[Rfam]
RNA sequence: GGCCGGUGAUGUGAUUAUAUAUUUGCUACUCUUGAUUGGAUUCUUCAUGAAUCCUACCUGAUGAUUCGUAUCCACCAAGAUCUCUGAGGCC
Numbered sequence: 001g002g003c004c005g006g007u008g009a010u011g012u013g014a015u016u017a018u019a020u021a022u023u024u025g026c027u028a029c030u031c032u033u034g035a036u037u038g039g040a041u042u043c044u045u046c047a048u049g050a051a052u053c054c055u056a057c058c059u060g061a062u063g064a065u066u067c068g069u070a071u072c073c074a075c076c077a078a079g080a081u082c083u084c085u086g087a088g089g090c091c
Base pairs, nucleotide, nucleotide: 001091002090003089004088

The record is a 91-nucleotide sequence from Rhododendron simsii, which matches "Small nucleolar RNA SNORD24" in Rfam. Rfam links the family to the GO terms nucleolus and RNA processing. For this family Rfam cites "U24, a novel intron-encoded small nucleolar RNA with two 12 nt long, phylogenetically conserved complementarities to 28S rRNA" (Qu et al., Nucleic Acids Res, 1995). It scores 60 bits against the family's covariance model. Rfam classes the family as a C/D-box small nucleolar RNA. Pairs were carried over by alignment from the consensus structure, which was predicted with PFOLD.